[Rfam]
RNA sequence: ACCCUGCUGACGGACUGAACGGCAUCCGGUAGCGAGAACCGGGCAGGGU
Numbered sequence: 001a002c003c004c005u006g007c008u009g010a011c012g013g014a015c016u017g018a019a020c021g022g023c024a025u026c027c028g029g030u031a032g033c034g035a036g037a038a039c040c041g042g043g044c045a046g047g048g049u
Base pairs, nucleotide, nucleotide: 001049002048003047004046005045006044007043011021012020017033023036026042027041028040029039030038
The record is a 49-nucleotide RNA sequence, which matches "DUF2693-FD RNA" in Rfam.
Rfam describes the family as follows. DUF2693-FD RNA is a non-coding RNA (ncRNA) recognised in Bacteroides by a bioinformatic analisis by Zasha Weinberg. No recognised genes.
Pairs were carried over by alignment from the consensus structure, which is taken from published work.